[Rfam]
RNA: MIR7504 microRNA precursor family
RNA sequence: AAUAGGAGAAUGACAAAUCAGAUUUUUCUUCUUGAUUUUCAGCCUUUUCCUCCCGAAAAUUUCAAAUCCAACUAAAAAUGCUAAAAAUUAGGAGGAAAAAUUAGAUCUGUUACUCUCCUAUU
Numbered sequence: 001a002a003u004a005g006g007a008g009a010a011u012g013a014c015a016a017a018u019c020a021g022a023u024u025u026u027u028c029u030u031c032u033u034g035a036u037u038u039u040c041a042g043c044c045u046u047u048u049c050c051u052c053c054c055g056a057a058a059a060u061u062u063c064a065a066a067u068c069c070a071a072c073u074a075a076a077a078a079u080g081c082u083a084a085a086a087a088u089u090a091g092g093a094g095g096a097a098a099a100a101u102u103a104g105a106u107c108u109g110u111u112a113c114u115c116u117c118c119u120a121u122u
Stems, first nucleotide, its partner, number of pairs: 001122009011112005017106003021102007029094011041082002045078004